RNA sequence: UUUCAGCGACCCCAACCACAGCGGAUGCUCCCGCGCGCGGGCCCGCCCGUAGGUCGCCAGGAUCGCCUGGGCCUC
Numbered sequence: 001u002u003u004c005a006g007c008g009a010c011c012c013c014a015a016c017c018a019c020a021g022c023g024g025a026u027g028c029u030c031c032c033g034c035g036c037g038c039g040g041g042c043c044c045g046c047c048c049g050u051a052g053g054u055c056g057c058c059a060g061g062a063u064c065g066c067c068u069g070g071g072c073c074u075c
Stems, first nucleotide, its partner, number of pairs: 014026001016024002031071002038065002043060001045058001047056001049054001
Shown here is a 75-nucleotide sequence from Lipingzhangella halophila, a member of the family "ASpks TB sRNA". By type it is an antisense RNA. A search with the family's covariance model found it, with a score of 68 bits. The family's consensus secondary structure is taken from published work.